Rfam assigns this 212-nucleotide RNA sequence from Burkholderia humptydooensis to the family "Group II catalytic intron D1-D4-6".
Rfam's curators write: Group II introns are found in rRNA, tRNA and mRNA of organelles in fungi, plants and protists, and also in mRNA in bacteria.
Rfam links the family to the GO term Group II intron splicing.
The organism belongs to Burkholderia humptydooensis, within Bacteria.
[Rfam]
RNA sequence: CAAGUCCAUUACGAUGAAGGUGUAGCGAUCCACAUCGGCCCCGAGCCGUGCGCAGGCGUCCGCGAGGAUGUCGGCGAAGCGUCGGCAGGGGAGCGUGCAGGCCAUCCAUUGAGCCGCGACAUCUACGACAUCCUGGGUGCCGACGUCGUUCUGAAGACGGAAGGCAACACGGCGGGGCGCGUCAUCGCAAGCGCUUCGACGACCCGGCGCGG
Numbered sequence: 001c002a003a004g005u006c007c008a009u010u011a012c013g014a015u016g017a018a019g020g021u022g023u024a025g026c027g028a029u030c031c032a033c034a035u036c037g038g039c040c041c042c043g044a045g046c047c048g049u050g051c052g053c054a055g056g057c058g059u060c061c062g063c064g065a066g067g068a069u070g071u072c073g074g075c076g077a078a079g080c081g082u083c084g085g086c087a088g089g090g091g092a093g094c095g096u097g098c099a100g101g102c103c104a105u106c107c108a109u110u111g112a113g114c115c116g117c118g119a120c121a122u123c124u125a126c127g128a129c130a131u132c133c134u135g136g137g138u139g140c141c142g143a144c145g146u147c148g149u150u151c152u153g154a155a156g157a158c159g160g161a162a163g164g165c166a167a168c169a170c171g172g173c174g175g176g177g178c179g180c181g182u183c184a185u186c187g188c189a190a191g192c193g194c195u196u197c198g199a200c201g202a203c204c205c206g207g208c209g210c211g212g
Base pairs, nucleotide, nucleotide: 012037013036014035015034016033019031020030023190025188026187039091040090041089042088045086046085047084048083049081050080051076052075053074055072056071057070058069059068060067061066115211116210117209118208133207134206135205136204137203138202139165140164141163144159145158146157147156170201171200173198174197175196176195177194178193179192180191